[Rfam]
Background: This 82-nucleotide sequence from Microtus ochrogaster belongs to the Rfam family "mir-877 microRNA precursor family". Rfam 15.1 lists 186 matches to the family in 115 species.

RNA sequence: GUAGGGGAGCUGCCGUGGGGAGGCAGGGUGAGCCUGGGGGUCUUGGGACCCUUGGACAUGGGUCCCCUUCUCCUCCUCCCAG
Numbered sequence: 001g002u003a004g005g006g007g008a009g010c011u012g013c014c015g016u017g018g019g020g021a022g023g024c025a026g027g028g029u030g031a032g033c034c035u036g037g038g039g040g041u042c043u044u045g046g047g048a049c050c051c052u053u054g055g056a057c058a059u060g061g062g063u064c065c066c067c068u069u070c071u072c073c074u075c076c077u078c079c080c081a082g
Stems, first nucleotide, its partner, number of pairs: 004078006012072001015070001017067005024060002027057001034055007041047002